[Rfam]
Nucleotides: 048
Stems, first nucleotide, its partner, number of pairs: 001048009010038003013034007
Number, partner (000 for none) and nucleotide at each position: 001048g002047g003046c004045u005044u006043g007042a008041u009040u010038g011037u012036a013034u014033g015032u016031g017030u018029a019028a020000a021000u022000u023000a024000a025000u026000u027000c028019u029018u030017a031016c032015a033014c034013a035000c036012u037011a038010c039000a040009a041008a042007u043006u044005a045004a046003g047002c048001c

A member of the RNA family "K10 transport/localisation element (TLS)" from Drosophila melanogaster, 48 nucleotides long.
For this family Rfam cites "A nuclear lamin is required for cytoplasmic organization and egg polarity in Drosophila" (Guillemin et al., Nat Cell Biol, 2001).
NCBI's taxonomy places the organism under Eukaryota, Bilateria, Altocrustacea, Allotriocarida, Sophophora.
The base pairs follow the family's consensus structure, which is taken from published work.
It is one of the family's seed sequences.
Rfam classes the family as a cis-regulatory element.
Rfam links the family to the GO terms mRNA transport and intracellular mRNA localization.